RNA sequence: GGAUACAAAGGUUCCAAAGUCGAAUAUUCGUUGCAAGCUUGCUUGCGAACGGGUGGUUGACCUUGGAACCUGCCGGAACCAUGAAUAAGGAGCCGUUUUUCGCAGAAAAACGAGCGGAUUAUGAAUGGUUCCGGCGGGAUUGCGGGAGUGCGGAGCACGGAGCAAUCCCGUAUCC
Numbered sequence: 001g002g003a004u005a006c007a008a009a010g011g012u013u014c015c016a017a018a019g020u021c022g023a024a025u026a027u028u029c030g031u032u033g034c035a036a037g038c039u040u041g042c043u044u045g046c047g048a049a050c051g052g053g054u055g056g057u058u059g060a061c062c063u064u065g066g067a068a069c070c071u072g073c074c075g076g077a078a079c080c081a082u083g084a085a086u087a088a089g090g091a092g093c094c095g096u097u098u099u100u101c102g103c104a105g106a107a108a109a110a111c112g113a114g115c116g117g118a119u120u121a122u123g124a125a126u127g128g129u130u131c132c133g134g135c136g137g138g139a140u141u142g143c144g145g146g147a148g149u150g151c152g153g154a155g156c157a158c159g160g161a162g163c164a165a166u167c168c169c170g171u172a173u174c175c
Base pairs, nucleotide, nucleotide: 001175002174003173004172005171006170011069012068013067014066017063019061020060021059022058023057025055026054027053028052029051030050031049032048033046034045035044036043037042075132076131077130078129079128080127081126082125085122086121087120088119092115093114094112095111096110097109098108099107100106101105137168138167139166140165141164142163143162148158149157150156151155
Shown here is a 175-nucleotide sequence from Lachnoclostridium sp. An14, a member of the family "Clostridiales-1 RNA". The source organism's lineage runs through Bacteria, Bacillati, Bacillota, Lachnospirales and Lachnoclostridium. The family has 194 seed sequences and 1,172 matches in Rfam 15.1.